[Rfam]
RNA sequence: GACUAGCGAUGAAGUGGAAGGUUGCUCGCCUUGUGAGGUAAUUUUCACGGAGCAGUCCGCAAAUCGGACGA
Numbered sequence: 001g002a003c004u005a006g007c008g009a010u011g012a013a014g015u016g017g018a019a020g021g022u023u024g025c026u027c028g029c030c031u032u033g034u035g036a037g038g039u040a041a042u043u044u045u046c047a048c049g050g051a052g053c054a055g056u057c058c059g060c061a062a063a064u065c066g067g068a069c070g071a
Stems, first nucleotide, its partner, number of pairs: 014048003018045004025037005055069005
About this RNA
Shown here is a 71-nucleotide RNA sequence from Desulforamulus hydrothermalis, a member of the family "S10-Clostridia ribosomal protein leader". The family's RNA type in Rfam is cis-regulatory leader.